[Rfam]
RNA sequence: CAUUAUUAAUGGAUCGUUUAAUGGAUUCUUCGCGCAUAAAAAAACCUGCACGUUGGCAGGUUUUUUUAUUAU
Numbered sequence: 001c002a003u004u005a006u007u008a009a010u011g012g013a014u015c016g017u018u019u020a021a022u023g024g025a026u027u028c029u030u031c032g033c034g035c036a037u038a039a040a041a042a043a044a045c046c047u048g049c050a051c052g053u054u055g056g057c058a059g060g061u062u063u064u065u066u067u068a069u070u071a072u
Base pairs, nucleotide, nucleotide: 004023005022006021007020008019009018040065041064042063043062044061045060046059047058048057049056